Shown here is a 93-nucleotide RNA from Acetobacterium bakii, a member of the family "THF (Tetrahydrofolate) riboswitch aptamer". Rfam describes the family as follows. Tetrahydrofolate (THF) riboswitch was first reported for Ames et al. as an RNA motif in 5' untranslated (5'-UTR)regions of folate transport and biosynthesis genes in Firmicutes genomes. The source organism's lineage runs through Bacteria, Bacillati, Clostridia, Eubacteriales and Acetobacterium.

RNA sequence: AACAGAGUAGAUGAGAUGCGUAAAGUGUUAGAGGAUGGGAAGUUGCCUUUAAACGAAAUGAAAACAUUGCGAUAUCUUAUUGCUUCCGCUGGA
Numbered sequence: 001a002a003c004a005g006a007g008u009a010g011a012u013g014a015g016a017u018g019c020g021u022a023a024a025g026u027g028u029u030a031g032a033g034g035a036u037g038g039g040a041a042g043u044u045g046c047c048u049u050u051a052a053a054c055g056a057a058a059u060g061a062a063a064a065c066a067u068u069g070c071g072a073u074a075u076c077u078u079a080u081u082g083c084u085u086c087c088g089c090u091g092g093a
Stems, first nucleotide, its partner, number of pairs: 003091003010081009019071003025054002028052007038087005057068004

Rfam 15.1 lists 747 matches to the family in 747 species.